[Rfam]
Shown here is an 87-nucleotide RNA from Bombilactobacillus apium, a member of the family "RNA anti-toxin A".
The base pairs follow the family's consensus structure, which was predicted with RNAalifold.
By type it is an antitoxin RNA.
RNA sequence: UAAUGUGGGUAAGAAAAAGGAAGCCCCGCUGAUAAUAGGACUUCCCAUGUAGAGCCGUUUAAGACGGUGGCUGCAUUUGGUUAAAUA
Numbered sequence: 001u002a003a004u005g006u007g008g009g010u011a012a013g014a015a016a017a018a019g020g021a022a023g024c025c026c027c028g029c030u031g032a033u034a035a036u037a038g039g040a041c042u043u044c045c046c047a048u049g050u051a052g053a054g055c056c057g058u059u060u061a062a063g064a065c066g067g068u069g070g071c072u073g074c075a076u077u078u079g080g081u082u083a084a085a086u087a
Base pairs, nucleotide, nucleotide: 025039026038028036054068055067056066057065058064059063

On this family, see Fozo et al., Nucleic Acids Res 2010: "Abundance of type I toxin-antitoxin systems in bacteria: searches for new candidates and discovery of novel families".